[Rfam]
RNA sequence: GUCAACUAACCCACGAAUAAAUUCGUAGGCUUGUAGGAGCAAUCCUAUUAAGCUUGGUUGAUUAGCCUAAGUAUUAAUUUACUACGUUAUACAAGAAUAUAUAGUUAUCUUGGGAUACUCCACAAGUCCCAUGCUCUAAGGGUAGUGAUUAAACAUUUUCUAGGGCUGGAAAAAGUGUUGCUGCUAGUUAAACCUUGUAUAACUUUGGCUAUGUGGACUUAC
Numbered sequence: 001g002u003c004a005a006c007u008a009a010c011c012c013a014c015g016a017a018u019a020a021a022u023u024c025g026u027a028g029g030c031u032u033g034u035a036g037g038a039g040c041a042a043u044c045c046u047a048u049u050a051a052g053c054u055u056g057g058u059u060g061a062u063u064a065g066c067c068u069a070a071g072u073a074u075u076a077a078u079u080u081a082c083u084a085c086g087u088u089a090u091a092c093a094a095g096a097a098u099a100u101a102u103a104g105u106u107a108u109c110u111u112g113g114g115a116u117a118c119u120c121c122a123c124a125a126g127u128c129c130c131a132u133g134c135u136c137u138a139a140g141g142g143u144a145g146u147g148a149u150u151a152a153a154c155a156u157u158u159u160c161u162a163g164g165g166c167u168g169g170a171a172a173a174a175g176u177g178u179u180g181c182u183g184c185u186a187g188u189u190a191a192a193c194c195u196u197g198u199a200u201a202a203c204u205u206u207g208g209c210u211a212u213g214u215g216g217a218c219u220u221a222c
Base pairs, nucleotide, nucleotide: 001062002061003060004059005058006057007056008055011029013026014025015024016023017022030052031051032050065209066208067207069205070083071082072081073080086203087202088201089200090199091198092197093196094195095194105139106138109133111131112130113129114128115127116126119217120216121215122214123213124212141185142184143183144182145181146180147179148178149177153176154175156173157172158171159170160169161168162167

The family of this 222-nucleotide RNA from Clostridium botulinum is "HNH endonuclease-associated RNA and ORF (HEARO) RNA".
Rfam classes the family as a non-coding RNA gene.
The sequence is in the family's curated seed alignment.